[Rfam]
RNA sequence: AUAUGCGUAAAAGUGUGUGUUACACACCCUUAGAUGGCAAAACUUCACAGUUGAACCUCUCACGGGGGGAGUUUUAGUUGGUAUGCGCCAGCAGGCUCCUCCUGCUGGUGAAUCCAACACUACCCGCACUUCCUUCGCGGGUGUCUUUAUGAAGAUUUCUCCUCCUUCUUCAAC
Numbered sequence: 001a002u003a004u005g006c007g008u009a010a011a012a013g014u015g016u017g018u019g020u021u022a023c024a025c026a027c028c029c030u031u032a033g034a035u036g037g038c039a040a041a042a043c044u045u046c047a048c049a050g051u052u053g054a055a056c057c058u059c060u061c062a063c064g065g066g067g068g069g070a071g072u073u074u075u076a077g078u079u080g081g082u083a084u085g086c087g088c089c090a091g092c093a094g095g096c097u098c099c100u101c102c103u104g105c106u107g108g109u110g111a112a113u114c115c116a117a118c119a120c121u122a123c124c125c126g127c128a129c130u131u132c133c134u135u136c137g138c139g140g141g142u143g144u145c146u147u148u149a150u151g152a153a154g155a156u157u158u159c160u161c162c163u164c165c166u167u168c169u170u171c172a173a174c
Base pairs, nucleotide, nucleotide: 044173045172047170064167065166066165067164069161070160071159077118078117079116080115081114086110087109088108089107090106091105092104093103094102095101120143122142123141124140125139126138